[Rfam]
RNA sequence: AAUGACUAAGACAUUACAAGUGUGUGUGUCUGUUGUGUCACAACUGCAUCAGUAGUCAGAGAGGAGAGAGGCUGUGUUGACACUCAGUGUUCUGACCUGUGAACAUCUGAAUGAUUAGUAGCCUAGCAUU
Numbered sequence: 001a002a003u004g005a006c007u008a009a010g011a012c013a014u015u016a017c018a019a020g021u022g023u024g025u026g027u028g029u030c031u032g033u034u035g036u037g038u039c040a041c042a043a044c045u046g047c048a049u050c051a052g053u054a055g056u057c058a059g060a061g062a063g064g065a066g067a068g069a070g071g072c073u074g075u076g077u078u079g080a081c082a083c084u085c086a087g088u089g090u091u092c093u094g095a096c097c098u099g100u101g102a103a104c105a106u107c108u109g110a111a112u113g114a115u116u117a118g119u120a121g122c123c124u125a126g127c128a129u130u
Base pairs, nucleotide, nucleotide: 003058004057005056006055007054008053010050011049017046018045025042026041027040028039030037066127069124070123071122072121073120074119075118081113082112084110085109086108087107088105089104090103091102092101
RNA: Small nucleolar RNA SNORA17
Organism: Mus spicilegus